[Rfam]
The family of this 71-nucleotide RNA from Pogona vitticeps is "Small nucleolar RNA SNORD59". Rfam links the family to the GO terms RNA processing and nucleolus. On this family, see Galardi et al., Mol Cell Biol 2002: "Purified box C/D snoRNPs are able to reproduce site-specific 2'-O-methylation of target RNA in vitro". The family has 24 seed sequences and 1,355 matches in Rfam 15.1. It is annotated as a C/D-box small nucleolar RNA. Its Rfam clan is "SNORD59 clan".
RNA sequence: CCUUCAAUGAUGAGUAUAUCCAUGACUUUCGUUCUUCUGAGAUUACUGAAGCAAUUCUCUUUCUGAGAAGG
Dot-bracket structure: (((.(.............................................................).)))